This 433-nucleotide RNA sequence from Delftia acidovorans belongs to the Rfam family "Bacterial RNase P class A". The family's consensus secondary structure is taken from published work. Gene Ontology terms of the family: tRNA processing, dimeric ribonuclease P complex and ribonuclease P activity.

[Rfam]
RNA sequence: GAAGCACGCCAGACCGCCGCUGGUGCAAUCGUGGAAACACGGCACUGGAGGAACGUCCGGACUGCACAGGGCAGCGUAGCAGCUAACGGCUGUCCACCGUGAGGUGAGGAUCAGAGCAACAGAGACGAGUCGGGGACAUGUGCCGCCAACUUGGUGUUCUAUGGGGUGCCAGCGCAAGCUGGCGACGGAUGGCGCAAGCCAGACGCCCAGGCGAAAGCCUGGGCCCCAUAGCCACCCGGGGACGCGGAACGCGUCCCCGGGUGAAACGGGCAAUCUCUACGCGCAGCAAUACCAAGUAGGCACACGUUGACGGGGCCCCCGGAGUGUGCGGGUAGGUAGCACCGAGCCGGGCGGCGACGCCCGGCCCAGAUUAAUGGCGGUCACAUGCGGGCAACCGCGUGCACAGAAUCCGGCUUAUCGGCGCGCUUCACAC
Numbered sequence: 001g002a003a004g005c006a007c008g009c010c011a012g013a014c015c016g017c018c019g020c021u022g023g024u025g026c027a028a029u030c031g032u033g034g035a036a037a038c039a040c041g042g043c044a045c046u047g048g049a050g051g052a053a054c055g056u057c058c059g060g061a062c063u064g065c066a067c068a069g070g071g072c073a074g075c076g077u078a079g080c081a082g083c084u085a086a087c088g089g090c091u092g093u094c095c096a097c098c099g100u101g102a103g104g105u106g107a108g109g110a111u112c113a114g115a116g117c118a119a120c121a122g123a124g125a126c127g128a129g130u131c132g133g134g135g136a137c138a139u140g141u142g143c144c145g146c147c148a149a150c151u152u153g154g155u156g157u158u159c160u161a162u163g164g165g166g167u168g169c170c171a172g173c174g175c176a177a178g179c180u181g182g183c184g185a186c187g188g189a190u191g192g193c194g195c196a197a198g199c200c201a202g203a204c205g206c207c208c209a210g211g212c213g214a215a216a217g218c219c220u221g222g223g224c225c226c227c228a229u230a231g232c233c234a235c236c237c238g239g240g241g242a243c244g245c246g247g248a249a250c251g252c253g254u255c256c257c258c259g260g261g262u263g264a265a266a267c268g269g270g271c272a273a274u275c276u277c278u279a280c281g282c283g284c285a286g287c288a289a290u291a292c293c294a295a296g297u298a299g300g301c302a303c304a305c306g307u308u309g310a311c312g313g314g315g316c317c318c319c320c321g322g323a324g325u326g327u328g329c330g331g332g333u334a335g336g337u338a339g340c341a342c343c344g345a346g347c348c349g350g351g352c353g354g355c356g357a358c359g360c361c362c363g364g365c366c367c368a369g370a371u372u373a374a375u376g377g378c379g380g381u382c383a384c385a386u387g388c389g390g391g392c393a394a395c396c397g398c399g400u401g402c403a404c405a406g407a408a409u410c411c412g413g414c415u416u417a418u419c420g421g422c423g424c425g426c427u428u429c430a431c432a433c
Base pairs, nucleotide, nucleotide: 001429002428003427004426005425007423008422009421010420011418012382013381014380015379016378017377018376020048021047022046023045024044025043026042053416055414057413058412059411060410061409062286063285064284065283069318070317071316072315074282075281076280077279078278079093080092081091082090083089094108095106096105097104098103109277110276114275115274116271117270131210133208134207135206137205139203141201142200220234221233222232236261237259238258239257240256241255242254243253244252290338291337292336293335300329301328302327303326304325305324311321312320313319346365347364348363349362350361351360352359353358